[Rfam]
Nucleotides: 069
Stems, first nucleotide, its partner, number of pairs: 001069006
Number, partner (000 for none) and nucleotide at each position: 001069g002068u003067g004066g005065c006064u007000a008000u009000g010000a011000u012000g013000a014000g015000g016000a017000a018000a019000a020000g021000a022000u023000u024000c025000a026000a027000u028000g029000a030000u031000g032000u033000a034000u035000u036000a037000u038000g039000a040000u041000u042000a043000c044000u045000c046000a047000c048000a049000c050000a051000u052000c053000g054000c055000a056000a057000u058000g059000c060000u061000c062000u063000g064006a065005g066004c067003c068002a069001c
Overview
Shown here is a 69-nucleotide sequence, a member of the family "Small nucleolar RNA Z169". By type it is a C/D-box small nucleolar RNA. It is one of the family's seed sequences.